MAT2A 3'UTR stem loop A: a 65-nucleotide RNA sequence from Carassius auratus. Rfam 15.1 lists 595 matches to the family in 507 species. Lineage of the source: Eukaryota > Metazoa > Teleostomi > Cyprininae > Carassius. Pairs were carried over by alignment from the consensus structure, which is taken from published work. It is annotated as a cis-regulatory element.

RNA sequence: GUUUUUCCUCUCUAGGCCUGUUGGCGUAUUCUACAGAGAAGCUCACAUGGCUUACGGGGAGAAGU
Numbered sequence: 001g002u003u004u005u006u007c008c009u010c011u012c013u014a015g016g017c018c019u020g021u022u023g024g025c026g027u028a029u030u031c032u033a034c035a036g037a038g039a040a041g042c043u044c045a046c047a048u049g050g051c052u053u054a055c056g057g058g059g060a061g062a063a064g065u
Base pairs, nucleotide, nucleotide: 001065002064003063004062008059009058010057011056013054014053015052016051019047020046023043024042025041026034027033